[Rfam]
Nucleotides: 068
Base pairs, nucleotide, nucleotide: 007062008061009060010059011058013056014055019050020049021048022047023046024045034043035042036041
Number, partner (000 for none) and nucleotide at each position: 001000a002000u003000a004000g005000g006000g007062u008061c009060u010059c011058a012000a013056u014055u015000u016000g017000u018000u019050g020049c021048c022047c023046a024045g025000a026000c027000c028000a029000g030000g031000a032000g033000u034043u035042u036041g037000a038000g039000a040000c041036c042035a043034g044000c045024c046023u047022g048021g049020g050019c051000a052000a053000c054000a055014a056013a057000g058011u059010g060009a061008g062007a063000c064000c065000c066000u067000a068000u

The record is a 68-nucleotide sequence from Chlorocebus sabaeus, which matches "mir-1285 microRNA precursor family" in Rfam. The match comes from Rfam's covariance-model search (56 bits). Gene Ontology terms of the family: miRNA-mediated post-transcriptional gene silencing and RISC complex.